Purine riboswitch aptamer: a 102-nucleotide RNA sequence from Natronobacillus azotifigens.
From the family's description: Riboswitches are metabolite binding domains within certain messenger RNAs that serve as precision sensors for their corresponding targets.
Pairs were carried over by alignment from the consensus structure, which is taken from published work.
NCBI's taxonomy places the organism under Bacteria, Bacillota, Bacilli, Bacillaceae, Natronobacillus.
It scores 78 bits against the family's covariance model.
[Rfam]
RNA sequence: UAAAUAUGAAUGAAUAACCUCUAUAUAUUCUUGAUAAUAUGGUUCGAGAGUUUCUAGCGAGACACCACAAAUGUUUCGACUAUGGAGGCAGAAUAAAAAGUG
Numbered sequence: 001u002a003a004a005u006a007u008g009a010a011u012g013a014a015u016a017a018c019c020u021c022u023a024u025a026u027a028u029u030c031u032u033g034a035u036a037a038u039a040u041g042g043u044u045c046g047a048g049a050g051u052u053u054c055u056a057g058c059g060a061g062a063c064a065c066c067a068c069a070a071a072u073g074u075u076u077c078g079a080c081u082a083u084g085g086a087g088g089c090a091g092a093a094u095a096a097a098a099a100g101u102g
Stems, first nucleotide, its partner, number of pairs: 018088008029049006058078007